[Rfam]
Shown here is a 54-nucleotide RNA from Coregonus sp. 'balchen', a member of the family "UnaL2 LINE 3' element". The eel long interspersed element (LINE) UnaL2 and its partner short interspersed element (SINE) share a conserved 3' tail containing a stem-loop that is critical for their retrotransposition. Presumably, the first step of retrotransposition is the recognition of their 3' tails by UnaL2-encoded reverse transcriptase. The source organism's lineage runs through Eukaryota, Opisthokonta, Actinopteri, Salmonidae and Coregonus. It is annotated as a cis-regulatory element. The base pairs follow the family's consensus structure, which is taken from published work.
RNA sequence: AAAAAUGUAUGCUGUAAGUCGCUUUGGAUAAAAGCGUCUGCUAAAUGGCCUAUC
Numbered sequence: 001a002a003a004a005a006u007g008u009a010u011g012c013u014g015u016a017a018g019u020c021g022c023u024u025u026g027g028a029u030a031a032a033a034g035c036g037u038c039u040g041c042u043a044a045a046u047g048g049c050c051u052a053u054c
Base pairs, nucleotide, nucleotide: 013043014041015040016039020036021035022034023033024032025031
A search with the family's covariance model found it, with a score of 63 bits.